[Rfam]
RNA sequence: UGCCUAAACCUCGUAUGAGGCAUGGCAGAAGAAAACCUUGUGAGAAGUAAGCUCGUCAUCAGAGCAUCUCACAAGGUCGUAUGGGGAAACUCAUGCGGGUAGCUCACGCUAUC
Numbered sequence: 001u002g003c004c005u006a007a008a009c010c011u012c013g014u015a016u017g018a019g020g021c022a023u024g025g026c027a028g029a030a031g032a033a034a035a036c037c038u039u040g041u042g043a044g045a046a047g048u049a050a051g052c053u054c055g056u057c058a059u060c061a062g063a064g065c066a067u068c069u070c071a072c073a074a075g076g077u078c079g080u081a082u083g084g085g086g087a088a089a090c091u092c093a094u095g096c097g098g099g100u101a102g103c104u105c106a107c108g109c110u111a112u113c
Stems, first nucleotide, its partner, number of pairs: 001027004009020004036076010051065004078097008098113006
LOOT RNA: a 113-nucleotide sequence. It is one of the family's seed sequences. Rfam classes the family as a small RNA.